[Rfam]
RNA sequence: CUUAUCGAGGAAGCGCCAGACCUCUUGCUAAGAGGUGACGAGGGGAAGGCUUAUCGAAAUCUUCGGCGGGUGGCCUUCCGGCCCGCAGUGGUCGUUAGGAAGGGGACAAAUCUUGCGGGUGACCGCUUGGACAAAUCCCCGACCGUGCUGCUCC
Numbered sequence: 001c002u003u004a005u006c007g008a009g010g011a012a013g014c015g016c017c018a019g020a021c022c023u024c025u026u027g028c029u030a031a032g033a034g035g036u037g038a039c040g041a042g043g044g045g046a047a048g049g050c051u052u053a054u055c056g057a058a059a060u061c062u063u064c065g066g067c068g069g070g071u072g073g074c075c076u077u078c079c080g081g082c083c084c085g086c087a088g089u090g091g092u093c094g095u096u097a098g099g100a101a102g103g104g105g106a107c108a109a110a111u112c113u114u115g116c117g118g119g120u121g122a123c124c125g126c127u128u129g130g131a132c133a134a135a136u137c138c139c140c141g142a143c144c145g146u147g148c149u150g151c152u153c154c
Stems, first nucleotide, its partner, number of pairs: 020036007045078005054066004079094005098144002102140003112129001115126004